[Rfam]
RNA sequence: AUUUUUAACUAGGGGAGCUAAUAUUUUGGCUGAGAUUGGAAAGAUUGAUUUCCUAGACUCUUAUAACCUGAUUUGGUUAACACCAACGUAGGGAAGUACACUAAAUAAUGA
Numbered sequence: 001a002u003u004u005u006u007a008a009c010u011a012g013g014g015g016a017g018c019u020a021a022u023a024u025u026u027u028g029g030c031u032g033a034g035a036u037u038g039g040a041a042a043g044a045u046u047g048a049u050u051u052c053c054u055a056g057a058c059u060c061u062u063a064u065a066a067c068c069u070g071a072u073u074u075g076g077u078u079a080a081c082a083c084c085a086a087c088g089u090a091g092g093g094a095a096g097u098a099c100a101c102u103a104a105a106u107a108a109u110g111a
Stems, first nucleotide, its partner, number of pairs: 008097003011061004017030005038053004067092004073086004
RNA: TPP riboswitch aptamer (THI element)
Organism: Clostridium taeniosporum